A member of the RNA family "Lysine riboswitch aptamer" from Vibrio genomosp. F6, 177 nucleotides long.
The match comes from Rfam's covariance-model search (92 bits).
Rfam describes the family as follows. Riboswitches are metabolite binding domains within certain messenger RNAs that serve as precision sensors for their corresponding targets.

RNA sequence: UCUAGCAGAAGAGGAGCAUUGCCCAGGCAGAUGUUUUGUGGAGCCUCAACUCCAAUACAAACCAUUCAUGGGGAGCAAUGCCGAGGUAAUUCAAAGUUGUGGCUUUGAGUUGUCGGUUGAACGGGCUGAAUCCCUUCGACUGUCAUCAGUUCUAUCUGAUGAGGAGCUUCUGAGGUG
Number, nucleotide and partner (000 for none) at each position: 001u000002c000003u000004a000005g000006c172007a171008g170009a169010a168011g167012a000013g000014g000015a000016g081017c080018a079019u078020u077021g076022c075023c000024c073025a000026g000027g000028c000029a000030g066031a065032u064033g063034u000035u061036u060037u059038g000039u000040g000041g000042a000043g000044c000045c000046u000047c000048a000049a000050c000051u000052c000053c000054a000055a000056u000057a000058c000059a037060a036061a035062c000063c033064a032065u031066u030067c000068a000069u000070g000071g000072g000073g024074a000075g022076c021077a020078a019079u018080g017081c016082c000083g000084a000085g114086g113087u112088a111089a110090u109091u108092c107093a106094a105095a104096g103097u000098u000099g000100u000101g000102g000103c096104u095105u094106u093107g092108a091109g090110u089111u088112g087113u086114c085115g141116g140117u139118u138119g137120a136121a135122c000123g134124g133125g132126c000127u000128g000129a000130a000131u000132c125133c124134c123135u121136u120137c119138g118139a117140c116141u115142g000143u162144c161145a160146u159147c158148a157149g156150u000151u000152c000153u000154a000155u000156c149157u148158g147159a146160u145161g144162a143163g000164g000165a000166g000167c011168u010169u009170c008171u007172g006173a000174g000175g000176u000177g000